Shown here is a 146-nucleotide sequence from Amphiprion percula, a member of the family "Small Cajal body specific RNA 11". A search with the family's covariance model found it, with a score of 40 bits. Rfam describes the family as follows. scaRNAs are a specific class of small nuclear RNAs which localise to the Cajal bodies and guide the modification of RNA polymerase II transcribed spliceosomal RNAs U1, U2, U4, U5 and U12. ACA57 belongs to the H/ACA box class of guide RNAs as it has the predicted hairpin-hinge-hairpin-tail structure, conserved H/ACA-box motifs and is found associated with GAR1. ACA57 is predicted to guide the pseudouridylation of the U5 spliceosomal RNA at position U43.
RNA sequence: GUAUUUAGCUUGUGUCCCGUCUGCCUCCCUCUGUCGGUCAGUGACAGAAUGCGGGGUUUCAGACUGAAGACACAGAAAAACUUCUGCCCAUAAAAGGGGACCAGUCCAAAGAUGUGGACUUGGUCCUAAAGGCAGGGCAGGACAGA
Numbered sequence: 001g002u003a004u005u006u007a008g009c010u011u012g013u014g015u016c017c018c019g020u021c022u023g024c025c026u027c028c029c030u031c032u033g034u035c036g037g038u039c040a041g042u043g044a045c046a047g048a049a050u051g052c053g054g055g056g057u058u059u060c061a062g063a064c065u066g067a068a069g070a071c072a073c074a075g076a077a078a079a080a081c082u083u084c085u086g087c088c089c090a091u092a093a094a095a096g097g098g099g100a101c102c103a104g105u106c107c108a109a110a111g112a113u114g115u116g117g118a119c120u121u122g123g124u125c126c127u128a129a130a131g132g133c134a135g136g137g138c139a140g141g142a143c144a145g146a
Stems, first nucleotide, its partner, number of pairs: 002070001004068005010063002023057003031051001034048002083141006091132001097127007104119005
The source organism's lineage runs through Eukaryota, Actinopteri, Clupeocephala, Euacanthomorphacea and Amphiprion. Pairs were carried over by alignment from the consensus structure, which was predicted with RNAalifold. Gene Ontology terms of the family: nucleolus, Cajal body and RNA processing.